Overview: The family of this 170-nucleotide RNA from Lewinella sp. W8 is "Group II catalytic intron D1-D4-3". It scores 108 bits against the family's covariance model. Group II introns are found in rRNA, tRNA and mRNA of organelles in fungi, plants and protists, and also in mRNA in bacteria. The organism belongs to Lewinella, within Bacteria. A reference for the family is Bonen and Vogel (2001), "The ins and outs of group II introns", Trends Genet.
RNA sequence: CGUGAGGCGACUCCGGGUCUAAAGUAAGCGGGACUGCAGAUACUGGUACGGACGAACAGGAACCGUAUAAGAGGCUUUCCGAAGCGGUCAAGGCAGCACAUCAUGUCAAAGGCCGUAGCCAACAAUCUCCGGAAAGUAGAUGCGGCCGCGAUCAGUAGAAAGAGGAUGGC
Dot-bracket structure: (..(((....)))..)...........((.(.....(...(((((((.(((...........((((((.....(((.((((.((.((((..((((........))))...))))............)).)))).)))..))))))))).).))))))....)....).))
Numbered sequence: 001c002g003u004g005a006g007g008c009g010a011c012u013c014c015g016g017g018u019c020u021a022a023a024g025u026a027a028g029c030g031g032g033a034c035u036g037c038a039g040a041u042a043c044u045g046g047u048a049c050g051g052a053c054g055a056a057c058a059g060g061a062a063c064c065g066u067a068u069a070a071g072a073g074g075c076u077u078u079c080c081g082a083a084g085c086g087g088u089c090a091a092g093g094c095a096g097c098a099c100a101u102c103a104u105g106u107c108a109a110a111g112g113c114c115g116u117a118g119c120c121a122a123c124a125a126u127c128u129c130c131g132g133a134a135a136g137u138a139g140a141u142g143c144g145g146c147c148g149c150g151a152u153c154a155g156u157a158g159a160a161a162g163a164g165g166a167u168g169g170c
Stems, first nucleotide, its partner, number of pairs: 001016001004013003028170002031167001037162001041157006047150001049148003063145006074137003078133004083128002086114004092107004